[Rfam]
RNA sequence: ACCCUUGUGGCGUAGAAGUUAGCGUAUCUGCCUCCGGCGAGGAUAGCAGAGGGUCGCGGGUGCAAUUCCCGUCAGGGGUU
Numbered sequence: 001a002c003c004c005u006u007g008u009g010g011c012g013u014a015g016a017a018g019u020u021a022g023c024g025u026a027u028c029u030g031c032c033u034c035c036g037g038c039g040a041g042g043a044u045a046g047c048a049g050a051g052g053g054u055c056g057c058g059g060g061u062g063c064a065a066u067u068c069c070c071g072u073c074a075g076g077g078g079u080u
Base pairs, nucleotide, nucleotide: 001079002078003077004076005075006074007073010025011024012023013022027050028049029048030047031046056072057071058070059069060068
Shown here is an 80-nucleotide RNA sequence from Wallemia hederae, a member of the family "tRNA". The source organism's lineage runs through Eukaryota, Opisthokonta, Wallemiales, Wallemiaceae and Wallemia.